The family of this 114-nucleotide sequence from Hibiscus syriacus is "MIR394 microRNA precursor family". On this family, see Jones-Rhoades and Bartel, Mol Cell 2004: "Computational identification of plant microRNAs and their targets, including a stress-induced miRNA". It scores 85 bits against the family's covariance model. Taxonomically the source falls in Hibiscus (Eukaryota, Mesangiospermae, Pentapetalae, Malvoideae). Pairs were carried over by alignment from the consensus structure, which was predicted with WAR. Rfam links the family to the GO terms miRNA-mediated post-transcriptional gene silencing and RISC complex.
Nucleotides: 114
Base pairs, nucleotide, nucleotide: 011104014100015099016098017097018096019095023091024090025089026088027087028086029085030084031083032082033081
Number, partner (000 for none) and nucleotide at each position: 001000c002000u003000u004000a005000c006000a007000g008000a009000g010000u011104u012000c013000a014100u015099u016098g017097g018096c019095a020000u021000u022000c023091u024090g025089u026088c027087c028086a029085c030084c031083u032082c033081c034000u035000c036000a037000u038000c039000a040000u041000a042000g043000c044000g045000g046000g047000a048000a049000a050000a051000a052000a053000c054000a055000g056000c057000u058000u059000u060000u061000u062000u063000u064000c065000c066000u067000a068000u069000u070000u071000a072000a073000u074000u075000u076000u077000u078000c079000a080000u081033g082032g083031a084030g085029g086028u087027g088026g089025g090024c091023a092000u093000a094000c095019u096018g097017u098016c099015a100014a101000c102000u103000g104011g105000g106000c107000u108000c109000u110000u111000u112000u113000g114000g